[Rfam]
RNA sequence: AUACUUACCUGGCAGGGGAGAUACCAUGAUCACGAAGGUGGUUUUCCCAGGGCGAGGCUCAUCCACUGCACUCCAGAUGUGCUGACCCCUGCUUUUUCCCGAAAUAUGGGAAACUACUGCUUAAUUUGUGGUAGUGGCGGACUGCAUUCACACUUUCCCCAU
Numbered sequence: 001a002u003a004c005u006u007a008c009c010u011g012g013c014a015g016g017g018g019a020g021a022u023a024c025c026a027u028g029a030u031c032a033c034g035a036a037g038g039u040g041g042u043u044u045u046c047c048c049a050g051g052g053c054g055a056g057g058c059u060c061a062u063c064c065a066c067u068g069c070a071c072u073c074c075a076g077a078u079g080u081g082c083u084g085a086c087c088c089c090u091g092c093u094u095u096u097u098c099c100c101g102a103a104a105u106a107u108g109g110g111a112a113a114c115u116a117c118u119g120c121u122u123a124a125u126u127u128g129u130g131g132u133a134g135u136g137g138c139g140g141a142c143u144g145c146a147u148u149c150a151c152a153c154u155u156u157c158c159c160c161a162u
Stems, first nucleotide, its partner, number of pairs: 012120004016048006023042005049090004054086001056083003060079004094113003098109002135161003139157001141156001144153001

A member of the RNA family "U1 spliceosomal RNA" from Vicugna pacos, 162 nucleotides long.
U1 is a small nuclear RNA (snRNA) component of the spliceosome (involved in pre-mRNA splicing). Its 5' end forms complementary base pairs with the 5' splice junction, thus defining the 5' donor site of an intron. There are significant differences in sequence and secondary structure between metazoan and yeast U1 snRNAs, the latter being much longer (568 nucleotides as compared to 164 nucleotides in human).